[Rfam]
Shown here is a 171-nucleotide RNA sequence from Lacticaseibacillus manihotivorans, a member of the family "Lysine riboswitch aptamer". The literature on the family includes a 2003 paper in Cell by Mandal et al., "Riboswitches Control Fundamental Biochemical Pathways in Bacillus subtilis and Other Bacteria". Its family is annotated with lysine biosynthetic process in the Gene Ontology. The match comes from Rfam's covariance-model search (71 bits). The base pairs follow the family's consensus structure, which is taken from published work.
RNA sequence: CCAAUCUUUAGAGGUCGCGCGCAUGAUGAGUCGGCGGGUUUGGUGGUUGUUGCCACGAGCAAAUCCGUUAAAAGGCCUGCGCGCCGAAAGCGAAACUGCAACAACAGUUGAACUUGGGCCAAGUCGGAAAUACCACUUGGACUGUCGCGAAUGCGUUGUGCUAAUGAACUU
Numbered sequence: 001c002c003a004a005u006c007u008u009u010a011g012a013g014g015u016c017g018c019g020c021g022c023a024u025g026a027u028g029a030g031u032c033g034g035c036g037g038g039u040u041u042g043g044u045g046g047u048u049g050u051u052g053c054c055a056c057g058a059g060c061a062a063a064u065c066c067g068u069u070a071a072a073a074g075g076c077c078u079g080c081g082c083g084c085c086g087a088a089a090g091c092g093a094a095a096c097u098g099c100a101a102c103a104a105c106a107g108u109u110g111a112a113c114u115u116g117g118g119c120c121a122a123g124u125c126g127g128a129a130a131u132a133c134c135a136c137u138u139g140g141a142c143u144g145u146c147g148c149g150a151a152u153g154c155g156u157u158g159u160g161c162u163a164a165u166g167a168a169c170u171u
Base pairs, nucleotide, nucleotide: 006166008164009163010162011161017084018083019082020081021080022079023078025076033069034068035067036066037065038064039063040062088115089114090113094109095108096107097106098105116143117142119140120139121138122137123136124135126133146155147154148153